[Rfam]
RNA sequence: CCAGUCUAGUUGCUGAAAAACUUCAACUCUGGGUUAGAAGCGGAGGAACCAAUGUAUUGGGGCGAAUCUUGAAUGGAGAGACACCUUCCAGUCUUAGCCCGUCAGCUAACUCCGUCGGCAUUGGAACGAGUACCU
Numbered sequence: 001c002c003a004g005u006c007u008a009g010u011u012g013c014u015g016a017a018a019a020a021c022u023u024c025a026a027c028u029c030u031g032g033g034u035u036a037g038a039a040g041c042g043g044a045g046g047a048a049c050c051a052a053u054g055u056a057u058u059g060g061g062g063c064g065a066a067u068c069u070u071g072a073a074u075g076g077a078g079a080g081a082c083a084c085c086u087u088c089c090a091g092u093c094u095u096a097g098c099c100c101g102u103c104a105g106c107u108a109a110c111u112c113c114g115u116c117g118g119c120a121u122u123g124g125a126a127c128g129a130g131u132a133c134c135u
Base pairs, nucleotide, nucleotide: 011120012119013118014117040115041114042113043112044111045110050059051058060100061099062098068076069075079094080093081092082091

Shown here is a 135-nucleotide RNA from Brasilonema sennae, a member of the family "c-di-AMP riboswitch aptamer (ydaO/yuaA leader)". The pairing is the family consensus, mapped onto this sequence. A search with the family's covariance model found it, with a score of 62 bits. Gene Ontology terms of the family: regulation of gene expression and cyclic-di-AMP binding.